Bacterial large subunit ribosomal RNA: a 228-nucleotide part of an RNA from Meiothermus ruber.

RNA sequence: GACUUACGGUAGUCGGCGAGCUUAAGCCGGAAGGCGGAGGCGUAGCGAAAGCGAGUCCGAACAGGGCGUGUAGUCGGCUGCCGUAGACUCGAAACCCAGAGAGCUAGUCCUGGCCAGGCUGAAGCCGAGGUGACACUCGGUGGAGGGCCGAACCGGUGGGAGAUGCAAAUCCUUCGGAUGAGCUGGGGUUAGGAGUGAAAAGCUAACCGAUCUGGGAGAUAGCUAGUU
Numbered sequence: 001g002a003c004u005u006a007c008g009g010u011a012g013u014c015g016g017c018g019a020g021c022u023u024a025a026g027c028c029g030g031a032a033g034g035c036g037g038a039g040g041c042g043u044a045g046c047g048a049a050a051g052c053g054a055g056u057c058c059g060a061a062c063a064g065g066g067c068g069u070g071u072a073g074u075c076g077g078c079u080g081c082c083g084u085a086g087a088c089u090c091g092a093a094a095c096c097c098a099g100a101g102a103g104c105u106a107g108u109c110c111u112g113g114c115c116a117g118g119c120u121g122a123a124g125c126c127g128a129g130g131u132g133a134c135a136c137u138c139g140g141u142g143g144a145g146g147g148c149c150g151a152a153c154c155g156g157u158g159g160g161a162g163a164u165g166c167a168a169a170u171c172c173u174u175c176g177g178a179u180g181a182g183c184u185g186g187g188g189u190u191a192g193g194a195g196u197g198a199a200a201a202g203c204u205a206a207c208c209g210a211u212c213u214g215g216g217a218g219a220u221a222g223c224u225a226g227u228u
Base pairs, nucleotide, nucleotide: 005085006084007083008082009081010080011079012078013077014076015075016074017073020041021040022039023038026035027034028033045052046051055067056066057065058064088226089225091223095216096215097214098213099212100211104192105191106190107189108188109187110186111185112184113183114182115180117149118148119147120146124141125140126139127138128137129136153177154176155175158173159172160171161170194204195203196202
Lineage of the source: Bacteria > Thermotogati > Deinococci > Thermales > Meiothermus ruber.